[Rfam]
RNA sequence: UGCCCUACAGUUUGCCGGCUCGCAUUUUCCGCAAGGAAUGUCUACUACAGACCCCUCCAUGACGGCCUGGAUGCCCGCGCGAGCCGCUCCCCGAGCCUGCAUCAGGACCUCGCUGCGAGCCCGCUAUUGGAUGUCGCCGCCGGUUCAACGCACCCAAUGCCAGGGGUGCCCGGCCGACGCAGAGGGAAUGCGUGUCGGAACUUUAACCCUUGAUGAUUUUU
Number, nucleotide and partner (000 for none) at each position: 001u000002g000003c000004c000005c000006u000007a000008c000009a202010g201011u200012u000013u000014g000015c198016c197017g196018g195019c000020u000021c000022g000023c000024a000025u000026u000027u000028u000029c000030c000031g000032c000033a000034a000035g000036g000037a000038a000039u000040g000041u000042c000043u000044a000045c000046u000047a000048c000049a000050g000051a000052c000053c000054c000055c000056u000057c000058c000059a000060u000061g000062a000063c000064g000065g000066c000067c000068u000069g000070g000071a000072u000073g000074c000075c000076c000077g000078c000079g000080c000081g000082a000083g000084c000085c000086g000087c000088u000089c000090c000091c000092c000093g000094a000095g000096c000097c000098u000099g000100c000101a000102u000103c000104a000105g000106g000107a000108c000109c000110u000111c000112g000113c000114u000115g000116c000117g000118a000119g000120c000121c000122c000123g000124c000125u000126a000127u000128u000129g000130g000131a000132u000133g000134u000135c000136g000137c000138c000139g000140c000141c000142g000143g000144u000145u000146c000147a000148a000149c000150g000151c000152a000153c000154c000155c000156a000157a000158u000159g000160c000161c000162a000163g000164g000165g000166g000167u000168g000169c000170c000171c000172g000173g000174c000175c000176g000177a000178c000179g000180c000181a000182g000183a000184g000185g000186g000187a000188a000189u000190g000191c000192g000193u000194g000195u018196c017197g016198g015199a000200a011201c010202u009203u000204u000205a000206a000207c000208c000209c000210u000211u000212g000213a000214u000215g000216a000217u000218u000219u000220u000221u000

A member of the RNA family "Ascomycota telomerase RNA" from Beauveria bassiana, 221 nucleotides of a longer RNA. Rfam 15.1 lists 475 matches to the family in 456 species. The family's RNA type in Rfam is non-coding RNA gene. The literature on the family includes a 2013 paper in Nucleic Acids Res by Qi et al., "The common ancestral core of vertebrate and fungal telomerase RNAs".